[Rfam]
RNA: Small nucleolar RNA R44/J54/Z268 family
Organism: Cajanus cajan
Nucleotides: 087
Base pairs, nucleotide, nucleotide: 002086003085004084005083006082
Number, partner (000 for none) and nucleotide at each position: 001000g002086g003085c004084g005083c006082a007000g008000a009000u010000g011000a012000c013000g014000a015000c016000a017000a018000a019000a020000u021000a022000g023000a024000c025000a026000g027000g028000g029000a030000c031000a032000u033000c034000a035000g036000c037000a038000c039000u040000c041000c042000a043000u044000a045000g046000g047000a048000g049000a050000a051000u052000g053000u054000u055000g056000a057000c058000u059000u060000c061000g062000u063000c064000u065000a066000a067000u068000g069000g070000g071000a072000a073000u074000c075000u076000c077000u078000c079000u080000g081000a082006u083005g084004c085003g086002u087000u